Guanidine-II riboswitch aptamer (mini-ykkC): a 52-nucleotide RNA from Vibrio eleionomae.
The source organism's lineage runs through Bacteria, Pseudomonadati, Gammaproteobacteria, Vibrionaceae and Vibrio.
The family has 72 seed sequences and 1,589 matches in Rfam 15.1.
Its family is annotated with regulation of gene expression in the Gene Ontology.
RNA sequence: CGUAGGGGACGACCUCUAAAACUCACGCGAAGCGACCACCGGGACGACCCGG
Numbered sequence: 001c002g003u004a005g006g007g008g009a010c011g012a013c014c015u016c017u018a019a020a021a022c023u024c025a026c027g028c029g030a031a032g033c034g035a036c037c038a039c040c041g042g043g044a045c046g047a048c049c050c051g052g
Stems, first nucleotide, its partner, number of pairs: 003018006039052005